[Rfam]
RNA sequence: UAUGUUUAAUGGCUGAAUUCCGUAAGGAAGCGGGGGACCCACUUUUUUGGGGCGAAUUCCGAAAGGAUAGGAUAACUCUUUCAAUCCGAGCCCAUCAGCUAACCUCGUAGGUGUUGAAAGAGGAGGC
Numbered sequence: 001u002a003u004g005u006u007u008a009a010u011g012g013c014u015g016a017a018u019u020c021c022g023u024a025a026g027g028a029a030g031c032g033g034g035g036g037a038c039c040c041a042c043u044u045u046u047u048u049g050g051g052g053c054g055a056a057u058u059c060c061g062a063a064a065g066g067a068u069a070g071g072a073u074a075a076c077u078c079u080u081u082c083a084a085u086c087c088g089a090g091c092c093c094a095u096c097a098g099c100u101a102a103c104c105u106c107g108u109a110g111g112u113g114u115u116g117a118a119a120g121a122g123g124a125g126g127c
Base pairs, nucleotide, nucleotide: 012112013111014110018029019028020027030108031107032106033105034104035103040049041048050093051092052091058067059066060065070087071086072085073084
RNA: c-di-AMP riboswitch aptamer (ydaO/yuaA leader)
Organism: Thermohalobacter berrensis